About this RNA
int-alpA RNA: a 69-nucleotide RNA sequence. From the family's description: Acidobacteria (1 example), Planctomycetes (1 example), Proteobacteria.
RNA sequence: ACCGCGCCUAGCCCGACGGGGUGAAAUCCGGGUUCCCUUACCCGGUUGGCGCGGUCGUUUCCGUAAGGG
Numbered sequence: 001a002c003c004g005c006g007c008c009u010a011g012c013c014c015g016a017c018g019g020g021g022u023g024a025a026a027u028c029c030g031g032g033u034u035c036c037c038u039u040a041c042c043c044g045g046u047u048g049g050c051g052c053g054g055u056c057g058u059u060u061c062c063g064u065a066a067g068g069g
Base pairs, nucleotide, nucleotide: 001055002054003053004052005051006050007049008048011022012021013020014019028045029044030043031042032041035069036068037067038066039065040064